[Rfam]
About this RNA: Rfam assigns this 102-nucleotide RNA from Acetohalobium arabaticum to the family "Purine riboswitch aptamer". Pairs were carried over by alignment from the consensus structure, which is taken from published work. Gene Ontology term of the family: purine nucleobase biosynthetic process. Lineage of the source: Bacteria > Bacillati > Halobacteroidaceae > Acetohalobium > Acetohalobium arabaticum. A search with the family's covariance model found it, with a score of 84 bits.
RNA sequence: AGAAGUUAAAUAAGGUUGGUUCGUAUAACUUCGAGAAUAAGGCUCGAAAGUUCCUACCAAAUGGCCGUAAACCAUUUGACUACGAAUUUUGAUGGUAGUUGA
Numbered sequence: 001a002g003a004a005g006u007u008a009a010a011u012a013a014g015g016u017u018g019g020u021u022c023g024u025a026u027a028a029c030u031u032c033g034a035g036a037a038u039a040a041g042g043c044u045c046g047a048a049a050g051u052u053c054c055u056a057c058c059a060a061a062u063g064g065c066c067g068u069a070a071a072c073c074a075u076u077u078g079a080c081u082a083c084g085a086a087u088u089u090u091g092a093u094g095g096u097a098g099u100u101g102a
Stems, first nucleotide, its partner, number of pairs: 018088008030048006058078007